Record summary
Shown here is a 71-nucleotide RNA, a member of the family "mir-12 microRNA precursor family". Gene Ontology terms of the family: miRNA-mediated post-transcriptional gene silencing and RISC complex. It scores 68 bits against the family's covariance model. A reference for the family is Werren et al. (2010), "Functional and evolutionary insights from the genomes of three parasitoid Nasonia species", Science.
RNA sequence: CGGGUGUGAGUAUUACAUCAGGUACUGGUGUGGAUCCUUAACAGCCAGUGCUUGUGUUAUACUUGCGCUCA
Numbered sequence: 001c002g003g004g005u006g007u008g009a010g011u012a013u014u015a016c017a018u019c020a021g022g023u024a025c026u027g028g029u030g031u032g033g034a035u036c037c038u039u040a041a042c043a044g045c046c047a048g049u050g051c052u053u054g055u056g057u058u059a060u061a062c063u064u065g066c067g068c069u070c071a
Stems, first nucleotide, its partner, number of pairs: 002070005009063004015057004021052009